[Rfam]
RNA sequence: GGACAAGCAAUGCUUGCCUUUAUGUUGAGCUUUUGAAUGAAUAUUCAGGAGGUUAAUUAUGGCAC
Numbered sequence: 001g002g003a004c005a006a007g008c009a010a011u012g013c014u015u016g017c018c019u020u021u022a023u024g025u026u027g028a029g030c031u032u033u034u035g036a037a038u039g040a041a042u043a044u045u046c047a048g049g050a051g052g053u054u055a056a057u058u059a060u061g062g063c064a065c
Stems, first nucleotide, its partner, number of pairs: 001018002004016005024057005030051009
The family of this 65-nucleotide RNA sequence from Klebsiella pneumoniae is "FourU thermometer RNA element". Rfam classes the family as an RNA thermoregulator. NCBI's taxonomy places the organism under Bacteria, Pseudomonadota, Enterobacteriaceae, Klebsiella, Klebsiella pneumoniae subsp. pneumoniae. About the family: FourU is a small thermoregulator element found upstream of the agsA gene in Salmonella species. The four Us occlude the Shine-Dalgarno (SD) sequence by base pairing. It has been suggested that this element is related to that found in Yersina pestis LcrF. Two further potential FourU regulators were found in S. aureus groES and B. melitensis dnaJ.